[Rfam]
RNA sequence: AACAAAAUUUGUGAUGCUUAAGGGGGGCUAUUGUUCGGCGGUUUAUAGGAGCCAGAUUUGUCUUUUGGGCAGAUCUCCAACCUAUUCUUACUUCCAAAACCGUUGCGAUGGCUUUCCAUUAGAUUUUCCUUUCUUUUCCUCGGUUUAGUUUAUUUUAUAUAAGUUACUUCGAGGAAGGAAAAGAAAAAGGAUAACGAGUGUCGUAGAUAAAUCUUCGGUUCCGAAUAGUCUGACUAUUGGUAUUGAGGUAAUCCAUCUUUAAAACCAUUGCCGUUAGAGGUUGCUUCCGGUUAUAUCCGGUUAAGCGACCCAUGAAAUGGUGAUGACCUGAGGUAUGGAACAUCU
Numbered sequence: 001a002a003c004a005a006a007a008u009u010u011g012u013g014a015u016g017c018u019u020a021a022g023g024g025g026g027g028c029u030a031u032u033g034u035u036c037g038g039c040g041g042u043u044u045a046u047a048g049g050a051g052c053c054a055g056a057u058u059u060g061u062c063u064u065u066u067g068g069g070c071a072g073a074u075c076u077c078c079a080a081c082c083u084a085u086u087c088u089u090a091c092u093u094c095c096a097a098a099a100c101c102g103u104u105g106c107g108a109u110g111g112c113u114u115u116c117c118a119u120u121a122g123a124u125u126u127u128c129c130u131u132u133c134u135u136u137u138c139c140u141c142g143g144u145u146u147a148g149u150u151u152a153u154u155u156u157a158u159a160u161a162a163g164u165u166a167c168u169u170c171g172a173g174g175a176a177g178g179a180a181a182a183g184a185a186a187a188a189g190g191a192u193a194a195c196g197a198g199u200g201u202c203g204u205a206g207a208u209a210a211a212u213c214u215u216c217g218g219u220u221c222c223g224a225a226u227a228g229u230c231u232g233a234c235u236a237u238u239g240g241u242a243u244u245g246a247g248g249u250a251a252u253c254c255a256u257c258u259u260u261a262a263a264a265c266c267a268u269u270g271c272c273g274u275u276a277g278a279g280g281u282u283g284c285u286u287c288c289g290g291u292u293a294u295a296u297c298c299g300g301u302u303a304a305g306c307g308a309c310c311c312a313u314g315a316a317a318u319g320g321u322g323a324u325g326a327c328c329u330g331a332g333g334u335a336u337g338g339a340a341c342a343u344c345u
Stems, first nucleotide, its partner, number of pairs: 013202007022116005028110001030109005037104008045085005054076005060070003124186004132180001134178002139174002142170002146166008213248007221240002224238005252339005257333002266325010279310008287300004
This 345-nucleotide RNA sequence from Saccharomyces uvarum belongs to the Rfam family "Small nucleolar RNA snR42". On this family, see Watkins et al., RNA 1998: "Cbf5p, a potential pseudouridine synthase, and Nhp2p, a putative RNA-binding protein, are present together with Gar1p in all H BOX/ACA-motif snoRNPs and constitute a common bipartite structure". Rfam links the family to the GO terms RNA processing and nucleolus. Taxonomically the source falls in Saccharomyces uvarum (Eukaryota, Saccharomycotina, Saccharomycetes, Saccharomycetales). It is one of the family's seed sequences.